[Rfam]
RNA sequence: UCCAUCGUGAGGUGGAGUCUGAAGGAAGCCUGAUGCAAAAUCUCGGUCUGACGAACAGAAACCACAUACAAGGCAUAUGUAGAGCGGACAAGUGUGCUGAACAACACAAAAAAUCCGAUACCACCCGAGCUCUACGGUGUAAAUGUGGCAGAUAUAUGAGAGGAAAGUUACCGUU
Numbered sequence: 001u002c003c004a005u006c007g008u009g010a011g012g013u014g015g016a017g018u019c020u021g022a023a024g025g026a027a028g029c030c031u032g033a034u035g036c037a038a039a040a041u042c043u044c045g046g047u048c049u050g051a052c053g054a055a056c057a058g059a060a061a062c063c064a065c066a067u068a069c070a071a072g073g074c075a076u077a078u079g080u081a082g083a084g085c086g087g088a089c090a091a092g093u094g095u096g097c098u099g100a101a102c103a104a105c106a107c108a109a110a111a112a113a114u115c116c117g118a119u120a121c122c123a124c125c126c127g128a129g130c131u132c133u134a135c136g137g138u139g140u141a142a143a144u145g146u147g148g149c150a151g152a153u154a155u156a157u158g159a160g161a162g163g164a165a166a167g168u169u170a171c172c173g174u175u
Base pairs, nucleotide, nucleotide: 001016002015003014004013005012006011028175030173032171035168036167041161042160043159044158045157046153047152048151049150050149062148063147064146065145066144067143073140074139075138078136079135080134081133082132083131084130086116087115088114092107093106094105095104
Dot-bracket structure: ((((((....))))))...........(.(.(..((....((((((((((...........((((((.....(((..(((((((.(((...((((........))))......))).............))))))).)))..)))))))))))...))))).....))..).).)
Record summary
This 175-nucleotide RNA sequence from Natranaerobius trueperi belongs to the Rfam family "Group II catalytic intron D1-D4-3". Rfam describes the family as follows. Group II introns are found in rRNA, tRNA and mRNA of organelles in fungi, plants and protists, and also in mRNA in bacteria. The organism belongs to Natranaerobius, within Bacteria.